Shown here is a 97-nucleotide RNA from Neisseria chenwenguii, a member of the family "Bacterial small signal recognition particle RNA". Rfam classes the family as a non-coding RNA gene. Lineage of the source: Bacteria > Pseudomonadati > Pseudomonadota > Neisseriales > Neisseria. The family's consensus secondary structure is taken from published work. A reference for the family is Rosenblad et al. (2003), "SRPDB: Signal Recognition Particle Database", Nucleic Acids Res.

[Rfam]
RNA sequence: GGCGGGUCUCCCCGCAUGGUAAUUCGGAACACCGGGUCAGGGGCGGAAGCCAGCAGCCCACUCCGAUGCGUCAGUGCCGGGGGUCGGGCUCGCCGCC
Numbered sequence: 001g002g003c004g005g006g007u008c009u010c011c012c013c014g015c016a017u018g019g020u021a022a023u024u025c026g027g028a029a030c031a032c033c034g035g036g037u038c039a040g041g042g043g044c045g046g047a048a049g050c051c052a053g054c055a056g057c058c059c060a061c062u063c064c065g066a067u068g069c070g071u072c073a074g075u076g077c078c079g080g081g082g083g084u085c086g087g088g089c090u091c092g093c094c095g096c097c
Stems, first nucleotide, its partner, number of pairs: 004091005009083006015074001017073004024066005034059004042051003